[Rfam]
RNA sequence: AAAGGUCUUUGGGGCAGGGUGAAAAUCCCGACCGAUGGUAUAGUCCAUGACCCGCCUAUAUAGGCGGCUGAUCUGGUGUGAUUCCAGAACCGACGGUUAGAGUCCGGAUGGGAAAAGACGUUU
Numbered sequence: 001a002a003a004g005g006u007c008u009u010u011g012g013g014g015c016a017g018g019g020u021g022a023a024a025a026u027c028c029c030g031a032c033c034g035a036u037g038g039u040a041u042a043g044u045c046c047a048u049g050a051c052c053c054g055c056c057u058a059u060a061u062a063g064g065c066g067g068c069u070g071a072u073c074u075g076g077u078g079u080g081a082u083u084c085c086a087g088a089a090c091c092g093a094c095g096g097u098u099a100g101a102g103u104c105c106g107g108a109u110g111g112g113a114a115a116a117g118a119c120g121u122u123u
Base pairs, nucleotide, nucleotide: 003121005119006118007117008116009115010114017029018028019027031103032102033092034091035048036047037046038045043090044089052067053066072088073087074086075085076084094106095105096104
Dot-bracket structure: ..(.((((((......(((.......))).[[((((((....[[))))...((............))....(((((.......)))))]])).(((.....]]))).......)))))).)..